[Rfam]
RNA sequence: CCCCUUUCCCCGGGGGGCCGCUGACGUGCGGCUGAGAGGUGGUCAACAGGCCGCGACCCGCUGAACCUGAUCCGGUUGAUACCGGCGUAGGGAGGGAUGGCGGUGCGUCC
Numbered sequence: 001c002c003c004c005u006u007u008c009c010c011c012g013g014g015g016g017g018c019c020g021c022u023g024a025c026g027u028g029c030g031g032c033u034g035a036g037a038g039g040u041g042g043u044c045a046a047c048a049g050g051c052c053g054c055g056a057c058c059c060g061c062u063g064a065a066c067c068u069g070a071u072c073c074g075g076u077u078g079a080u081a082c083c084g085g086c087g088u089a090g091g092g093a094g095g096g097a098u099g100g101c102g103g104u105g106c107g108u109c110c
Base pairs, nucleotide, nucleotide: 007097008096009095010094011060012059013058014057016054017032018031019030020029021028040053041052042051043050044049066091067090068089069088072085073084074083075082